[Rfam]
RNA: Bacterial large subunit ribosomal RNA, nucleotides 9 to 523
RNA sequence: AUUUAAAGGGAUUUGUAAGGAUACCUAGCAGAUAUAUUUGAAAGGAAGGAAAUUCUUUAAGUAAUAGUAAAAAAUUUGUAAACUAUUACAAUCCUAAGGAAAACCGAAAAAGUAGAAUACGUUGGGAAUUAAAACAUUUUAGUACCAAUAGGAAAGGAAAUCAAAUGAGACUUCUGUAGUAAUGGUGAGUGAAACAGAAUGAGCCUUUUUAUUCUUCUGUAAAAUAGUAGAAUAGCAAUAAAUAUUGUGGAAUUCAAUAGACUACGUUUUAUAACGUAACCGAAGAUGGUGAUAGUCCAUACAUUGCUUAUCUAUGCGUAAGCUAGAAUAACUCUAUUUUAUAAAAAGAAGAUAGAAUCAAGUAAUAUGAAGACGGCUGCUUUGUAUGAAUGAGGGGAUACCAUUCUCCAAGGCUAAGUAUAAUAUAUCUAGCGAUAGUGAAGAGUAACGUGAGUGAAAGGUGAAAAGUAAGUGAAUGACUAGUGAAAUAGAUCUUGAAUUACAAAUCUUACAAG
Numbered sequence: 001a002u003u004u005a006a007a008g009g010g011a012u013u014u015g016u017a018a019g020g021a022u023a024c025c026u027a028g029c030a031g032a033u034a035u036a037u038u039u040g041a042a043a044g045g046a047a048g049g050a051a052a053u054u055c056u057u058u059a060a061g062u063a064a065u066a067g068u069a070a071a072a073a074a075u076u077u078g079u080a081a082a083c084u085a086u087u088a089c090a091a092u093c094c095u096a097a098g099g100a101a102a103a104c105c106g107a108a109a110a111a112g113u114a115g116a117a118u119a120c121g122u123u124g125g126g127a128a129u130u131a132a133a134a135c136a137u138u139u140u141a142g143u144a145c146c147a148a149u150a151g152g153a154a155a156g157g158a159a160a161u162c163a164a165a166u167g168a169g170a171c172u173u174c175u176g177u178a179g180u181a182a183u184g185g186u187g188a189g190u191g192a193a194a195c196a197g198a199a200u201g202a203g204c205c206u207u208u209u210u211a212u213u214c215u216u217c218u219g220u221a222a223a224a225u226a227g228u229a230g231a232a233u234a235g236c237a238a239u240a241a242a243u244a245u246u247g248u249g250g251a252a253u254u255c256a257a258u259a260g261a262c263u264a265c266g267u268u269u270u271a272u273a274a275c276g277u278a279a280c281c282g283a284a285g286a287u288g289g290u291g292a293u294a295g296u297c298c299a300u301a302c303a304u305u306g307c308u309u310a311u312c313u314a315u316g317c318g319u320a321a322g323c324u325a326g327a328a329u330a331a332c333u334c335u336a337u338u339u340u341a342u343a344a345a346a347a348g349a350a351g352a353u354a355g356a357a358u359c360a361a362g363u364a365a366u367a368u369g370a371a372g373a374c375g376g377c378u379g380c381u382u383u384g385u386a387u388g389a390a391u392g393a394g395g396g397g398a399u400a401c402c403a404u405u406c407u408c409c410a411a412g413g414c415u416a417a418g419u420a421u422a423a424u425a426u427a428u429c430u431a432g433c434g435a436u437a438g439u440g441a442a443g444a445g446u447a448a449c450g451u452g453a454g455u456g457a458a459a460g461g462u463g464a465a466a467a468g469u470a471a472g473u474g475a476a477u478g479a480c481u482a483g484u485g486a487a488a489u490a491g492a493u494c495u496u497g498a499a500u501u502a503c504a505a506a507u508c509u510u511a512c513a514a515g
Stems, first nucleotide, its partner, number of pairs: 008510010023495001024461002028433002030430007037422001039116001043095004047056003062088007071076001098105002120151001121149005131138002161168002171418001172199005182190002202415004216223001230359002233354002236351001243347001245345002250340003254336001258330002263278005281285001287325003365387008394409005448455002471481002